The record is a 327-nucleotide RNA sequence from Aedoeadaptatus coxii, which matches "Bacterial RNase P class A" in Rfam. Pairs were carried over by alignment from the consensus structure, which is taken from published work. A search with the family's covariance model found it, with a score of 261 bits. It is annotated as a ribozyme. Lineage of the source: Bacteria > Bacillota > Tissierellia > Peptoniphilaceae > Aedoeadaptatus.
[Rfam]
RNA sequence: CGAGUACGUCGGUUAACUGCGCGUAUGCGAGGAAAGUCCGUGCUUCACAGAGUAAGGAUGCCGGAUAACGUCCGGUGGGGGCGACCCUAAGGCUAGUGCAACAGAGAGAUACCGCCUGAAAAGGUAAGGGUGGAAAGGUGAGGUAAGAGCUCACCAGCGCAUAGGCGACUAUGCGGCUAUGUAAACCCCAUCCGAAGCAAGACCAAAGUGGAUUAAAGGCGAUUACUCGUCGCCUCCGGAUAGGUAGGUCGCUAGAGCCUCCGGUGACGGAAGGUCCAGAUAGAUAGUUAACGAAUACAAAACACGGCUUAUAGACGUAGUCGACAA
Numbered sequence: 001c002g003a004g005u006a007c008g009u010c011g012g013u014u015a016a017c018u019g020c021g022c023g024u025a026u027g028c029g030a031g032g033a034a035a036g037u038c039c040g041u042g043c044u045u046c047a048c049a050g051a052g053u054a055a056g057g058a059u060g061c062c063g064g065a066u067a068a069c070g071u072c073c074g075g076u077g078g079g080g081g082c083g084a085c086c087c088u089a090a091g092g093c094u095a096g097u098g099c100a101a102c103a104g105a106g107a108g109a110u111a112c113c114g115c116c117u118g119a120a121a122a123g124g125u126a127a128g129g130g131u132g133g134a135a136a137g138g139u140g141a142g143g144u145a146a147g148a149g150c151u152c153a154c155c156a157g158c159g160c161a162u163a164g165g166c167g168a169c170u171a172u173g174c175g176g177c178u179a180u181g182u183a184a185a186c187c188c189c190a191u192c193c194g195a196a197g198c199a200a201g202a203c204c205a206a207a208g209u210g211g212a213u214u215a216a217a218g219g220c221g222a223u224u225a226c227u228c229g230u231c232g233c234c235u236c237c238g239g240a241u242a243g244g245u246a247g248g249u250c251g252c253u254a255g256a257g258c259c260u261c262c263g264g265u266g267a268c269g270g271a272a273g274g275u276c277c278a279g280a281u282a283g284a285u286a287g288u289u290a291a292c293g294a295a296u297a298c299a300a301a302a303c304a305c306g307g308c309u310u311a312u313a314g315a316c317g318u319a320g321u322c323g324a325c326a327a
Base pairs, nucleotide, nucleotide: 001323002322003321005319006318007317008316009315010314011312012292013291014290015289016288017287018286020029021028022027034310035309036308038307039306040305041304042303043197044196045195046194052227056193057192058191059190060189061075062074063073064072065071076090077088078087079086080085091188092187096186097185098182099181100180112129113128114125115124116123117122137155138154139153140152141151142150157177158175159174160173161172162171163170164169201250202249203248204247211237219233220232221231222230223229257275258274259273260272261270262269263268